[Rfam]
RNA sequence: GUGGCGGGACAUUUAGUCGGGAACCCUCAGGAAUCCUUACCGUUCGGUAAGGCGAGUUUUUCGGAACUCUAAGUCA
Numbered sequence: 001g002u003g004g005c006g007g008g009a010c011a012u013u014u015a016g017u018c019g020g021g022a023a024c025c026c027u028c029a030g031g032a033a034u035c036c037u038u039a040c041c042g043u044u045c046g047g048u049a050a051g052g053c054g055a056g057u058u059u060u061u062c063g064g065a066a067c068u069c070u071a072a073g074u075c076a
Base pairs, nucleotide, nucleotide: 035052036051037050038049039048040047041046054069055068056067057066058065059064

Shown here is a 76-nucleotide RNA from Legionella massiliensis, a member of the family "RAGATH-32 RNA".
The source organism's lineage runs through Bacteria, Pseudomonadati, Legionellales, Legionellaceae and Legionella.
The base pairs follow the family's consensus structure, which is taken from published work.